[Rfam]
RNA sequence: UUAAUAAAUACACAUCAGCAAUACAAAGUGGGGAAUACCCCAGCCAAUCAUAUAAAUAUAAUGUCUGGUGUCAGAUUAUGAAUACUCUACAAAACGUGAAGUACUGGUCGUGGAUGGGGGCUUUUACCAUUUCUAUCCUGUUCUGGGGUCAACUCAUCUGGCUGACCAUAAACUAAACGCUAAAACCUCGCUCCGGCGGGGUUUUUUGUUUUA
Numbered sequence: 001u002u003a004a005u006a007a008a009u010a011c012a013c014a015u016c017a018g019c020a021a022u023a024c025a026a027a028g029u030g031g032g033g034a035a036u037a038c039c040c041c042a043g044c045c046a047a048u049c050a051u052a053u054a055a056a057u058a059u060a061a062u063g064u065c066u067g068g069u070g071u072c073a074g075a076u077u078a079u080g081a082a083u084a085c086u087c088u089a090c091a092a093a094a095c096g097u098g099a100a101g102u103a104c105u106g107g108u109c110g111u112g113g114a115u116g117g118g119g120g121c122u123u124u125u126a127c128c129a130u131u132u133c134u135a136u137c138c139u140g141u142u143c144u145g146g147g148g149u150c151a152a153c154u155c156a157u158c159u160g161g162c163u164g165a166c167c168a169u170a171a172a173c174u175a176a177a178c179g180c181u182a183a184a185a186c187c188u189c190g191c192u193c194c195g196g197c198g199g200g201g202u203u204u205u206u207u208g209u210u211u212u213a
Stems, first nucleotide, its partner, number of pairs: 010071004018062001029043001031041003108147002112138001114136007149165003153161002184203008
The family of this 213-nucleotide RNA from Enterobacteriaceae bacterium RIT714 is "Enterobacterial sRNA STnc180". It is annotated as a small RNA. The family's consensus secondary structure was predicted with RNAalifold.